[Rfam]
RNA sequence: GGCGAUAAACGUUUGCCGCAAUAAACCCUUCGGACCCGGGGGCAGCACCCGGCGCCUCCACCGAAGCCCGUCCGAGCGGCGGGUUUCGGCGGGGGCGAAACAGGAUCGACGGGGGCGUAAAGGGCGUGCUUUCGCUCGGCAUGGUUCCGCCGUCAUCGGGCCUUUUUAUAGUUGCCAACGACAACUAUGCUCCGGUUGCUCAGGCCGCGUGA
Numbered sequence: 001g002g003c004g005a006u007a008a009a010c011g012u013u014u015g016c017c018g019c020a021a022u023a024a025a026c027c028c029u030u031c032g033g034a035c036c037c038g039g040g041g042g043c044a045g046c047a048c049c050c051g052g053c054g055c056c057u058c059c060a061c062c063g064a065a066g067c068c069c070g071u072c073c074g075a076g077c078g079g080c081g082g083g084u085u086u087c088g089g090c091g092g093g094g095g096c097g098a099a100a101c102a103g104g105a106u107c108g109a110c111g112g113g114g115g116c117g118u119a120a121a122g123g124g125c126g127u128g129c130u131u132u133c134g135c136u137c138g139g140c141a142u143g144g145u146u147c148c149g150c151c152g153u154c155a156u157c158g159g160g161c162c163u164u165u166u167u168a169u170a171g172u173u174g175c176c177a178a179c180g181a182c183a184a185c186u187a188u189g190c191u192c193c194g195g196u197u198g199c200u201c202a203g204g205c206c207g208c209g210u211g212a
Stems, first nucleotide, its partner, number of pairs: 001136005014126004026115003030112003036052005053097007137152004
Rfam assigns this 212-nucleotide RNA sequence from Methylopila jiangsuensis to the family "permuted transfer-messenger RNA". The source organism's lineage runs through Bacteria, Pseudomonadati, Alphaproteobacteria, Hyphomicrobiales and Methylopila. The base pairs follow the family's consensus structure, which is taken from published work. Rfam describes the family as follows. Bacterial tmRNA, also known as 10Sa RNA or SsrA, is named for its dual tRNA and mRNA-like properties. Its role is to liberate the mRNA from a stalled ribosome. To accomplish this part of the tmRNA is used as a reading frame that ends in a translation stop signal. The broken mRNA is replaced in the ribosome by the tmRNA and translation of the tmRNA leads to addition of a proteolysis tag to the incomplete protein enabling recognition by a protease. It is annotated as a non-coding RNA gene.